[Rfam]
RNA sequence: GGAGACUCCUGCUGUAUCCCUUAUCAUUUGCAGGACUCGGCCAUGCGGUGGGUCAUAUGACCUUAGACGUUUAGCGUCAAGCGUGUGGUGGUGAGGUGGGGUUAAAUGCCCU
Dot-bracket structure: [[[...((((((....]]]..........))))))((((((((((((..(((((....)))))..((((.....))))...))))))))..))))..(((((.....)))))
Description
epsC RNA: a 112-nucleotide sequence from Paenibacillus sp. FSL H8-0548. By type it is a cis-regulatory element. Pairs were carried over by alignment from the consensus structure, which is taken from published work. The source organism's lineage runs through Bacteria, Bacillota, Bacilli, Paenibacillaceae and Paenibacillus.